[Rfam]
The family of this 42-nucleotide RNA sequence is "L31-Firmicutes ribosomal protein leader". The sequence is in the family's curated seed alignment.
RNA sequence: CUCUGGCGCUGGACAAAGAGCUUGAUCACCAGGGCAAAGGAG
Numbered sequence: 001c002u003c004u005g006g007c008g009c010u011g012g013a014c015a016a017a018g019a020g021c022u023u024g025a026u027c028a029c030c031a032g033g034g035c036a037a038a039g040g041a042g
Stems, first nucleotide, its partner, number of pairs: 001034006